U7 small nuclear RNA: a 61-nucleotide RNA from Saimiri boliviensis.
RNA sequence: AAGUGCUGCAGUUCUUUCAGAAUUGUCUAGCAGGUCUUCCGGGUUUUAACCAGAAACCCUC
Numbered sequence: 001a002a003g004u005g006c007u008g009c010a011g012u013u014c015u016u017u018c019a020g021a022a023u024u025g026u027c028u029a030g031c032a033g034g035u036c037u038u039c040c041g042g043g044u045u046u047u048a049a050c051c052a053g054a055a056a057c058c059c060u061c
Stems, first nucleotide, its partner, number of pairs: 033058003037055003042051003
The family's consensus secondary structure was predicted with PFOLD. Animal histone pre-mRNAs are spliced by a different mechanism than nuclear pre-mRNAs and self-splicing introns. The family has 49 seed sequences and 10,439 matches in Rfam 15.1.